[Rfam]
This 87-nucleotide sequence belongs to the Rfam family "c-di-GMP-II-GAG riboswitch aptamer". On this family, see Weinberg et al., Proc Natl Acad Sci U S A 2017: "Bioinformatic analysis of riboswitch structures uncovers variant classes with altered ligand specificity". The family is grouped with related families in Rfam's "c-di-GMP_II riboswitch clan".

RNA sequence: CGCGGAACGGGGGUUCCGCCAGCACACUGGUGGAUACGGUCGCCAGUCCGGUGUGCUGGGCCAAUGGCGAGACCGACCCGGGCUACG
Numbered sequence: 001c002g003c004g005g006a007a008c009g010g011g012g013g014u015u016c017c018g019c020c021a022g023c024a025c026a027c028u029g030g031u032g033g034a035u036a037c038g039g040u041c042g043c044c045a046g047u048c049c050g051g052u053g054u055g056c057u058g059g060g061c062c063a064a065u066g067g068c069g070a071g072a073c074c075g076a077c078c079c080g081g082g083c084u085a086c087g
Stems, first nucleotide, its partner, number of pairs: 001087002004084002008080004012062003022056008038074002040070005
Dot-bracket structure: ((.((..(((((((.......((((((((........[[[[[[[....))))))))...)))...]]]]]..]]..))))..)).))